[Rfam]
RNA sequence: GUCCGAUGCCCAUGGCGGGCGUUUCCUCCCUUGACUUCGGCCCCGCGCGACGACCGCUGCGGGGCCUUUUUUUCGGCUCC
Numbered sequence: 001g002u003c004c005g006a007u008g009c010c011c012a013u014g015g016c017g018g019g020c021g022u023u024u025c026c027u028c029c030c031u032u033g034a035c036u037u038c039g040g041c042c043c044c045g046c047g048c049g050a051c052g053a054c055c056g057c058u059g060c061g062g063g064g065c066c067u068u069u070u071u072u073u074c075g076g077c078u079c080c
Base pairs, nucleotide, nucleotide: 008020009019010018011017040065041064042063043062044061045060046059047057048056
RNA: Makes More Granules Regulator RNA (mmgR)
Organism: Paramagnetospirillum magnetotacticum